Cyano-1 RNA: a 64-nucleotide sequence from Synechococcus sp. MIT S9508. A search with the family's covariance model found it, with a score of 57 bits. Lineage of the source: Bacteria > Cyanophyceae > Synechococcales > Synechococcaceae > Synechococcus. The base pairs follow the family's consensus structure, which is taken from published work.
RNA sequence: GAAUCGGUGAGGAGAAAUGCUCACGGGGUGGAAACAAGGACACACUCCCGCAGAGUUUUCAAAA
Numbered sequence: 001g002a003a004u005c006g007g008u009g010a011g012g013a014g015a016a017a018u019g020c021u022c023a024c025g026g027g028g029u030g031g032a033a034a035c036a037a038g039g040a041c042a043c044a045c046u047c048c049c050g051c052a053g054a055g056u057u058u059u060c061a062a063a064a
Base pairs, nucleotide, nucleotide: 016059017058019056020055021054022053025049026048027047028045029044030043